[Rfam]
RNA sequence: CAGUUGGCGGGAGGCUCUGACGCGCGGCCCACACUCUGGCCGCCGGGACCGCGCCGAGCCACUGGCGAGACCGACCCGCGGAUUG
Numbered sequence: 001c002a003g004u005u006g007g008c009g010g011g012a013g014g015c016u017c018u019g020a021c022g023c024g025c026g027g028c029c030c031a032c033a034c035u036c037u038g039g040c041c042g043c044c045g046g047g048a049c050c051g052c053g054c055c056g057a058g059c060c061a062c063u064g065g066c067g068a069g070a071c072c073g074a075c076c077c078g079c080g081g082a083u084u085g
Base pairs, nucleotide, nucleotide: 001085002084003083004082005081007079008078009077010076011075013060014059015058022054023053024052025051026050027049029047038072039071041067042066043065044064

This 85-nucleotide RNA belongs to the Rfam family "c-di-GMP-II-GAG riboswitch aptamer". Clan: c-di-GMP_II riboswitch clan. The family's consensus secondary structure is taken from published work.